[Rfam]
RNA: Small nucleolar RNA SNORA56
RNA sequence: AAGCAGCAGUUAUCCCUUUCCAGUCUGGCUUGUGAGACUCUAUAGGGAGUCAAUCUGCAAUAGUUAAGUGGUUAGUUCUUCUGUCUAGGAUCAGUGUUUUCAUGGUGACUUUGGAGUUGCCAUAUGUUA
Numbered sequence: 001a002a003g004c005a006g007c008a009g010u011u012a013u014c015c016c017u018u019u020c021c022a023g024u025c026u027g028g029c030u031u032g033u034g035a036g037a038c039u040c041u042a043u044a045g046g047g048a049g050u051c052a053a054u055c056u057g058c059a060a061u062a063g064u065u066a067a068g069u070g071g072u073u074a075g076u077u078c079u080u081c082u083g084u085c086u087a088g089g090a091u092c093a094g095u096g097u098u099u100u101c102a103u104g105g106u107g108a109c110u111u112u113g114g115a116g117u118u119g120c121c122a123u124a125u126g127u128u129a
Stems, first nucleotide, its partner, number of pairs: 003058004019044001022041002024037003069122004074117001077115003083109003090103002093100002